[Rfam]
RNA sequence: GCCCUGUGGUUACUGGACCUGUAUGAUGUUACAUUGUUCCAGUGUGUGAUAAAGGGCAGACAUUAGUACUGUGAUAUUUAGCAUGGGGCAUGACAUUGCUGUGUUGUCCCCAUAGCCCGGUCACAGUGACACAU
Numbered sequence: 001g002c003c004c005u006g007u008g009g010u011u012a013c014u015g016g017a018c019c020u021g022u023a024u025g026a027u028g029u030u031a032c033a034u035u036g037u038u039c040c041a042g043u044g045u046g047u048g049a050u051a052a053a054g055g056g057c058a059g060a061c062a063u064u065a066g067u068a069c070u071g072u073g074a075u076a077u078u079u080a081g082c083a084u085g086g087g088g089c090a091u092g093a094c095a096u097u098g099c100u101g102u103g104u105u106g107u108c109c110c111c112a113u114a115g116c117c118c119g120g121u122c123a124c125a126g127u128g129a130c131a132c133a134u
Base pairs, nucleotide, nucleotide: 001057002056003055004054007048008047011044012043013042014041015040016039017038020033021032022031069126071124072123073122074121075120081116082115083113084112085111086110088108089106090105093102